[Rfam]
RNA: Small nucleolar RNA Z159/U59
RNA sequence: UUCUCUGAUGAUGAUUUUGAAAAAUAGACCUUUUAUCUCCUGAGAAGUAAUCUUGUGCUGAAUCCAUAUGGAGACCUGAGCUGAAGAGAA
Numbered sequence: 001u002u003c004u005c006u007g008a009u010g011a012u013g014a015u016u017u018u019g020a021a022a023a024a025u026a027g028a029c030c031u032u033u034u035a036u037c038u039c040c041u042g043a044g045a046a047g048u049a050a051u052c053u054u055g056u057g058c059u060g061a062a063u064c065c066a067u068a069u070g071g072a073g074a075c076c077u078g079a080g081c082u083g084a085a086g087a088g089a090a
Base pairs, nucleotide, nucleotide: 003088004087005086006085